[Rfam]
RNA: Burkholderiales-2 RNA
RNA sequence: GCAGAGCCGUGGCCAUGCCCACGGGUGCUAUUGAGCCGGACGAACCCCAAACAGGCUGGGGAGCAACAUCGGC
Numbered sequence: 001g002c003a004g005a006g007c008c009g010u011g012g013c014c015a016u017g018c019c020c021a022c023g024g025g026u027g028c029u030a031u032u033g034a035g036c037c038g039g040a041c042g043a044a045c046c047c048c049a050a051a052c053a054g055g056c057u058g059g060g061g062a063g064c065a066a067c068a069u070c071g072g073c
Base pairs, nucleotide, nucleotide: 001028002027003026008023009022010021011020012019035073036072037071038070039069045061046060047059048058049057